[Rfam]
RNA sequence: ACGAGGUUUGAAACAUGUCACGUUCUUUCCGUCUAUCAGGUCUACUACUAAACGCAACUUAUCUGCGCGGUAGACUUGUGGGCGAAAUCAAACACUGAUUCGAACCUGCUAAAAGUUAAAAACCCGCGCCUGUCGCGGGUUUUUUU
Numbered sequence: 001a002c003g004a005g006g007u008u009u010g011a012a013a014c015a016u017g018u019c020a021c022g023u024u025c026u027u028u029c030c031g032u033c034u035a036u037c038a039g040g041u042c043u044a045c046u047a048c049u050a051a052a053c054g055c056a057a058c059u060u061a062u063c064u065g066c067g068c069g070g071u072a073g074a075c076u077u078g079u080g081g082g083c084g085a086a087a088u089c090a091a092a093c094a095c096u097g098a099u100u101c102g103a104a105c106c107u108g109c110u111a112a113a114a115g116u117u118a119a120a121a122a123c124c125c126g127c128g129c130c131u132g133u134c135g136c137g138g139g140u141u142u143u144u145u146u
Stems, first nucleotide, its partner, number of pairs: 004107001006105005012099001014097002016094003030084007038076001045073005053067004119143010
A member of the RNA family "Leucine operon leader" from Pantoea ananatis, 146 nucleotides long. Rfam describes the family as follows. At least 6 amino acid operons are known to be regulated by attenuation. In each a leader sequence of 150-200 bp is found upstream of the first gene in the operon. This leader sequence can assume two different secondary structures known as the terminator and the anti-terminator structure. In each case the leader also codes for very short peptide sequence that is rich in the end product amino acid of the operon. The terminator structure is recognised as a termination signal for RNA polymerase and the operon is not transcribed. This structure forms when the cell has an excess of the regulatory amino acid and ribosome movement over the leader transcript is not impeded. When there is a deficiency of the charged tRNA of the regulatory amino acid the ribosome translating the leader peptide stalls and the antiterminator structure can form. This allows RNA polymerase to transcribe the operon. In the Rfam alignment the consensus structure is of the terminator. The alternative consensus structure is the antiterminator structure. It scores 87 bits against the family's covariance model. A reference for the family is Kolter and Yanofsky (1982), "Attenuation in amino acid biosynthetic operons", Annu Rev Genet. Rfam classes the family as a cis-regulatory leader.